[Rfam]
RNA: Ribosomal protein L10 leader
Organism: Aminivibrio pyruvatiphilus
RNA sequence: ACAGAAAUACCACGUGAACUGCAGACAGCGGGUCCCCUUCGGGGACAAUGGAUCCGUUCCGCCCGCCGAGGUUCCGGCUGAAAUGCGGCUGUAAAGCUGUUUUUUAUCCCGGGCCCGGUGUGCCCGGGAUUUUUUUAAUGCUAU
Dot-bracket structure: ...........................(((((((((.....)))................))))))........................................((((((((.(...).))))))))...............